The record is a 95-nucleotide sequence from Parvibacter caecicola, which matches "Glycine riboswitch aptamer" in Rfam.
Nucleotides: 095
Stems, first nucleotide, its partner, number of pairs: 009087005019030003032075003035071002039069001041067001045062004
Number, partner (000 for none) and nucleotide at each position: 001000g002000g003000a004000g005000a006000a007000a008000a009087c010086u011085c012084u013083g014000g015000a016000g017000a018000a019030c020029u021028c022000u023000u024000a025000a026000a027000u028021g029020a030019g031000u032075g033074c034073c035071g036070a037000a038000g039069g040000u041067g042000c043000a044000a045062g046061g047060g048059c049000c050000c051000c052000g053000c054000a055000g056000g057000g058000u059048g060047c061046c062045c063000g064000a065000a066000u067041c068000u069039c070036u071035c072000a073034g074033g075032c076000a077000a078000a079000a080000g081000g082000a083013c084012a085011g086010a087009g088000g089000a090000g091000c092000a093000g094000c095000g
About the family: This family represents the bacterial glycine riboswitch. The family has 44 seed sequences and 9,425 matches in Rfam 15.1.